[Rfam]
RNA: 6S / SsrS RNA
Organism: Nitrobacter winogradskyi
RNA sequence: GCGAGGCUGCGCCGCGCGUCAGAAGCCACAAUCCCCGGGGCCUUAUCGAUCCUUAAGGGAACUGUCCCUGGUCGGGUCCGUGGAUCCGGCCAUAUGGUGCCCACCUACUUUCGUAGGGAACUCCGGGAUCGAGCGCUUCAACGGCGGUCGCGGCUUCGCG
Numbered sequence: 001g002c003g004a005g006g007c008u009g010c011g012c013c014g015c016g017c018g019u020c021a022g023a024a025g026c027c028a029c030a031a032u033c034c035c036c037g038g039g040g041c042c043u044u045a046u047c048g049a050u051c052c053u054u055a056a057g058g059g060a061a062c063u064g065u066c067c068c069u070g071g072u073c074g075g076g077u078c079c080g081u082g083g084a085u086c087c088g089g090c091c092a093u094a095u096g097g098u099g100c101c102c103a104c105c106u107a108c109u110u111u112c113g114u115a116g117g118g119a120a121c122u123c124c125g126g127g128a129u130c131g132a133g134c135g136c137u138u139c140a141a142c143g144g145c146g147g148u149c150g151c152g153g154c155u156u157c158g159c160g
Stems, first nucleotide, its partner, number of pairs: 002158010012147004017143003032128004037123003041118002057102003061098005070091009